int-alpA RNA: a 70-nucleotide RNA from Sphaerotilus sulfidivorans. Acidobacteria (1 example), Planctomycetes (1 example), Proteobacteria. The source organism's lineage runs through Bacteria, Pseudomonadati, Betaproteobacteria, Sphaerotilaceae and Sphaerotilus.
RNA sequence: GCCGCGGAUAGGCCGGCCAGCCGAAGAGCGGGACACCUUCACCCGCCUGCCGUGGCGCCCCGAUGAAGGG
Numbered sequence: 001g002c003c004g005c006g007g008a009u010a011g012g013c014c015g016g017c018c019a020g021c022c023g024a025a026g027a028g029c030g031g032g033a034c035a036c037c038u039u040c041a042c043c044c045g046c047c048u049g050c051c052g053u054g055g056c057g058c059c060c061c062g063a064u065g066a067a068g069g070g
Stems, first nucleotide, its partner, number of pairs: 001056007011022003028046005036070004